RNA: HDV ribozyme from F. prausnitzii
RNA sequence: CCUGAUCAAUAUUGCUGCACCUCAACGUGGUGAUCAGGUGGAAACAAGUCUUUAUCAGGCUUGGCUAAGACAGCAAUG
Number, nucleotide and partner (000 for none) at each position: 001c038002c037003u036004g035005a034006u033007c032008a000009a000010u000011a000012u000013u000014g000015c000016u000017g000018c000019a031020c030021c029022u000023c000024a000025a000026c000027g000028u000029g021030g020031u019032g007033a006034u005035c004036a003037g002038g001039u000040g000041g000042a000043a000044a000045c063046a062047a061048g060049u059050c058051u057052u000053u000054a000055u000056c000057a051058g050059g049060c048061u047062u046063g045064g000065c000066u000067a000068a000069g000070a000071c000072a000073g000074c000075a000076a000077u000078g000